RNA sequence: AUCAAAACAUGGUAGGUGAGGUUACCAUAGGGAUACGGGUUGAUACCGCGGAGUAGUGGAGACACUAUGAGAAGGUUAGCAGUUUAUGUCGUAGUUAAGGCAUAAACUAAUUCAAUUACAAGCCCUAUGAUGCUAAAGCUUGAACAUGAAAAGUA
Numbered sequence: 001a002u003c004a005a006a007a008c009a010u011g012g013u014a015g016g017u018g019a020g021g022u023u024a025c026c027a028u029a030g031g032g033a034u035a036c037g038g039g040u041u042g043a044u045a046c047c048g049c050g051g052a053g054u055a056g057u058g059g060a061g062a063c064a065c066u067a068u069g070a071g072a073a074g075g076u077u078a079g080c081a082g083u084u085u086a087u088g089u090c091g092u093a094g095u096u097a098a099g100g101c102a103u104a105a106a107c108u109a110a111u112u113c114a115a116u117u118a119c120a121a122g123c124c125c126u127a128u129g130a131u132g133c134u135a136a137a138g139c140u141u142g143a144a145c146a147u148g149a150a151a152a153g154u155a
Stems, first nucleotide, its partner, number of pairs: 008148004013098001015140003020134003026129007039116005046074001049071001055066004082107004088101003

This 155-nucleotide sequence from Clostridium neonatale belongs to the Rfam family "M-box riboswitch aptamer (ykoK leader)".
Rfam links the family to the GO terms regulation of gene expression and response to magnesium ion.
Taxonomically the source falls in Clostridium (Bacteria, Bacillati, Bacillota, Clostridia).
M-box riboswitch, also know as ykoK leader is described as a metaloregulatory RNA that sense divalent metals and function as a genetic control element of genes related to divalent metal transport in bacteria. It was first reported upstream of the B.subtilis ykoK gene and genes with related functions in other bacteria.